[Rfam]
RNA: Glycine riboswitch aptamer
Organism: Burkholderiales bacterium
RNA sequence: GGGCUCCCCGCAGGAGAGCGCGCCCGCGACCCGAGGGUCGCGGCGCCGCCGAAGGCGCAAUCCCCGACGAUCGCUCAGGCAAACGGACUGCGGGAGGGUG
Number, nucleotide and partner (000 for none) at each position: 001g000002g000003g000004c000005u000006c000007c094008c093009c092010g091011c090012a089013g088014g000015a000016g000017a000018g000019c000020g046021c045022g044023c043024c000025c000026g000027c000028g000029a000030c000031c000032c000033g000034a000035g000036g000037g000038u000039c000040g000041c000042g000043g023044c022045g021046c020047c000048g080049c079050c078051g076052a075053a000054g000055g074056c073057g072058c000059a000060a000061u067062c066063c000064c000065c000066g062067a061068c000069g000070a000071u000072c057073g056074c055075u052076c051077a000078g050079g049080c048081a000082a000083a000084c000085g000086g000087a000088c013089u012090g011091c010092g009093g008094g007095a000096g000097g000098g000099u000100g000